[Rfam]
RNA sequence: UUUGAUGUAAAUUGAUAUAUGUUUGGAUACACUUUCUUAAAAGCGAUUCUUACGAGUUGAUGUCGUUUUGAUAG
Number, nucleotide and partner (000 for none) at each position: 001u000002u000003u000004g000005a000006u000007g000008u000009a000010a000011a061012u060013u059014g058015a057016u056017a000018u054019a000020u000021g053022u052023u000024u000025g049026g048027a047028u046029a000030c045031a000032c043033u042034u041035u000036c000037u000038u000039a000040a000041a034042a033043g032044c000045g030046a028047u027048u026049c025050u000051u000052a022053c021054g018055a000056g016057u015058u014059g013060a012061u011062g000063u000064c000065g000066u000067u000068u000069u000070g000071a000072u000073a000074g000
A member of the RNA family "MIR5272 microRNA precursor family" from Medicago truncatula, 74 nucleotides long. The family's consensus secondary structure was predicted with RNAalifold. It scores 78 bits against the family's covariance model.